Overview: The family of this 349-nucleotide RNA from Sphenodon punctatus is "7SK RNA". For this family Rfam cites "Structural analyses of the 7SK ribonucleoprotein (RNP), the most abundant human small RNP of unknown function" (Wassarman and Steitz, Mol Cell Biol, 1991). 7SK was discovered as an abundant small nuclear RNA in the mid-70s but a possible function has only recently been suggested. Two independent studies have found that 7SK RNA binds the CDK9/cyclin T complex (known as elongation factor P-TEFb).

RNA sequence: GGAUGUGAGGGCGAUCUGGCUGCGACAUCUGUCACCCCAUUGAUCGCCAGGGUUGAUUCAGCUGAUCUGGCUGGCUAGGUGGGUGUCCCCUUCCUCCCUCACUGCUCCAUGUGCGUCCCUCCUGAAGCUGUGCACUUGGUGGAUGAGGCCGUCCUCCCAAAUAGAAGGAGUACCAUUCUUCGGUCAAGGGUAUACGAUAGCUGCGCUCCCCUGCUAGAACCUCCAAACACUCUACGUGGGGCUGCCCUUGGUGACGGUUUUGAGGCUGCACAUGGUGUAGAAUGUGGUGACUCACCUCCUUACGGGGGCACAUCACAGUAAGUACCUAACACUGGUGUUCUGUUUGCUG
Numbered sequence: 001g002g003a004u005g006u007g008a009g010g011g012c013g014a015u016c017u018g019g020c021u022g023c024g025a026c027a028u029c030u031g032u033c034a035c036c037c038c039a040u041u042g043a044u045c046g047c048c049a050g051g052g053u054u055g056a057u058u059c060a061g062c063u064g065a066u067c068u069g070g071c072u073g074g075c076u077a078g079g080u081g082g083g084u085g086u087c088c089c090c091u092u093c094c095u096c097c098c099u100c101a102c103u104g105c106u107c108c109a110u111g112u113g114c115g116u117c118c119c120u121c122c123u124g125a126a127g128c129u130g131u132g133c134a135c136u137u138g139g140u141g142g143a144u145g146a147g148g149c150c151g152u153c154c155u156c157c158c159a160a161a162u163a164g165a166a167g168g169a170g171u172a173c174c175a176u177u178c179u180u181c182g183g184u185c186a187a188g189g190g191u192a193u194a195c196g197a198u199a200g201c202u203g204c205g206c207u208c209c210c211c212u213g214c215u216a217g218a219a220c221c222u223c224c225a226a227a228c229a230c231u232c233u234a235c236g237u238g239g240g241g242c243u244g245c246c247c248u249u250g251g252u253g254a255c256g257g258u259u260u261u262g263a264g265g266c267u268g269c270a271c272a273u274g275g276u277g278u279a280g281a282a283u284g285u286g287g288u289g290a291c292u293c294a295c296c297u298c299c300u301u302a303c304g305g306g307g308g309c310a311c312a313u314c315a316c317a318g319u320a321a322g323u324a325c326c327u328a329a330c331a332c333u334g335g336u337g338u339u340c341u342g343u344u345u346g347c348u349g
Base pairs, nucleotide, nucleotide: 001108002107003106005102006101007100008099009098010097011096013093014092018090019089024087025086026085027084028083029082030081031080032079033078035074036073037070038069039068042067043066044065045064046062047061117170118168119167120166121164122139123138124137125136127135140161147157148156200296202294207290209289211287212286213285214284221280222279224277229276230275231274316349317348318347320344321343323342324339326337